The record is a 120-nucleotide RNA from Glycine max, which matches "MIR1520 microRNA precursor family" in Rfam. Taxonomically the source falls in Glycine subgen. Soja (Eukaryota, eudicotyledons, Gunneridae, Phaseoleae). It scores 108 bits against the family's covariance model. Gene Ontology terms of the family: miRNA-mediated post-transcriptional gene silencing and RISC complex.
[Rfam]
Nucleotides: 120
Stems, first nucleotide, its partner, number of pairs: 020109004025104002029100003033096004038091005
Number, partner (000 for none) and nucleotide at each position: 001000u002000u003000a004000a005000c006000a007000a008000g009000u010000g011000a012000u013000g014000u015000u016000g017000a018000c019000u020109g021108u022107c023106a024000c025104g026103u027000g028000c029100c030099a031098u032000g033096u034095u035094c036093u037000g038091a039090u040089u041088g042087g043000u044000c045000a046000a047000u048000g049000a050000a051000a052000a053000c054000a055000a056000c057000a058000a059000u060000g061000c062000a063000u064000u065000u066000c067000a068000u069000c070000u071000u072000u073000c074000a075000u076000g077000g078000a079000g080000u081000u082000g083000a084000c085000a086000u087042u088041c089040a090039a091038u092000c093036a094035g095034a096033a097000c098031a099030u100029g101000a102000c103026a104025c105000a106023u107022g108021a109020c110000a111000g112000c113000c114000a115000u116000c117000a118000u119000c120000c